Shown here is a 64-nucleotide sequence, a member of the family "nhaA-I RNA".
About the family: Acidobacteria, Alphaproteobacteria, Betaproteobacteria and Gammaproteobacteria, Verrucomicrobia, cand. division NC10.
It is annotated as a riboswitch.

[Rfam]
RNA sequence: GGGUGCUGACUGCUUGGUGCAGUGAGGCAGGUUAAAAAGACUACGCUGGUCGGGCCGCCAUGCG
Numbered sequence: 001g002g003g004u005g006c007u008g009a010c011u012g013c014u015u016g017g018u019g020c021a022g023u024g025a026g027g028c029a030g031g032u033u034a035a036a037a038a039g040a041c042u043a044c045g046c047u048g049g050u051c052g053g054g055c056c057g058c059c060a061u062g063c064g
Base pairs, nucleotide, nucleotide: 005028006027007026009023010022011021044064045063046062048059049058050057